This 101-nucleotide sequence from Anoxybacter fermentans belongs to the Rfam family "c-di-GMP-I riboswitch aptamer". The organism belongs to Anoxybacter, within Bacteria. Gene Ontology term of the family: cyclic-di-GMP binding.
[Rfam]
RNA sequence: AAGUGAAAAAGGCAAAUCUAUCGAAAGGUAAGGACGCAAAAGUAUAGGGUCUAAGGCAGUUAAAUUAUUGGACUUAACUACUAUGACAGCCAUUUGCCACU
Dot-bracket structure: ...........((...(.((((....)))).)...))..((((...(((((....(.((((((..........)))))).)...)))..))))))......